[Rfam]
RNA sequence: AUAACUCUAUAUGACUGGCGGAUAAGUGGGAUUAACCCACAGGGAAUAUAGGGUGUGUAUUUAGCCGACCGCCUGGGCAUUCUAU
Numbered sequence: 001a002u003a004a005c006u007c008u009a010u011a012u013g014a015c016u017g018g019c020g021g022a023u024a025a026g027u028g029g030g031a032u033u034a035a036c037c038c039a040c041a042g043g044g045a046a047u048a049u050a051g052g053g054u055g056u057g058u059a060u061u062u063a064g065c066c067g068a069c070c071g072c073c074u075g076g077g078c079a080u081u082c083u084a085u
Stems, first nucleotide, its partner, number of pairs: 004054009015043002017073005027039004064078003
The record is an 85-nucleotide RNA from Natranaerovirga pectinivora, which matches "ZMP/ZTP riboswitch aptamer (pfl RNA motif)" in Rfam. The base pairs follow the family's consensus structure, which is taken from published work.